[Rfam]
RNA sequence: AGCCUAAACCCUCCAUUCGGAAGGCAUGGCUUAAAAUCCCACUAAGAUACUGAUCCCGUCGUUCAGCAUCUUAGUGGGUCAUGCCUCGAAAGGGGUAUGGGGCCUUAGGCCC
Dot-bracket structure: ((((....((.(((....))).))...))))......(((((((((((..(((.........)))..))))))))))).((((((((....))))))))(((((...)))))